A member of the RNA family "mir-31 microRNA precursor family" from Megalops atlanticus, 99 nucleotides long. The family has 75 seed sequences and 1,181 matches in Rfam 15.1. Gene Ontology terms of the family: gene silencing by miRNA and RISC complex.

[Rfam]
RNA sequence: GGUUGGCUAAUAGGCAGAAUGCAGGCCUAGCUUGUAUUUUGCAAAGUUUGUCCUUUGCAAAAUACAAGCUAGGCCUGCAUUCUGCCUAUUAGCCAACCC
Numbered sequence: 001g002g003u004u005g006g007c008u009a010a011u012a013g014g015c016a017g018a019a020u021g022c023a024g025g026c027c028u029a030g031c032u033u034g035u036a037u038u039u040u041g042c043a044a045a046g047u048u049u050g051u052c053c054u055u056u057g058c059a060a061a062a063u064a065c066a067a068g069c070u071a072g073g074c075c076u077g078c079a080u081u082c083u084g085c086c087u088a089u090u091a092g093c094c095a096a097c098c099c
Stems, first nucleotide, its partner, number of pairs: 005094017023076023